[Rfam]
RNA sequence: UGCUCAUCAAGACCGGCUGAGGGACGGGCCCUUUGACGCCGGGGCAACCACCGGAGCGAUACCGCCAAGCCGACGCGGGUCGUGGAUCGGAAAGGUGCCAACUCCUGCGGAAGCGCCAGGCGGCGCGACCCGAGAGAUGAGGC
Numbered sequence: 001u002g003c004u005c006a007u008c009a010a011g012a013c014c015g016g017c018u019g020a021g022g023g024a025c026g027g028g029c030c031c032u033u034u035g036a037c038g039c040c041g042g043g044g045c046a047a048c049c050a051c052c053g054g055a056g057c058g059a060u061a062c063c064g065c066c067a068a069g070c071c072g073a074c075g076c077g078g079g080u081c082g083u084g085g086a087u088c089g090g091a092a093a094g095g096u097g098c099c100a101a102c103u104c105c106u107g108c109g110g111a112a113g114c115g116c117c118a119g120g121c122g123g124c125g126c127g128a129c130c131c132g133a134g135a136g137a138u139g140a141g142g143c
Base pairs, nucleotide, nucleotide: 003141004140005139006138007137008136013042014041015040016039017038021031022030023029025107026106027105028104043099044098045097046096048095049094051090052089053088103135108132109131110130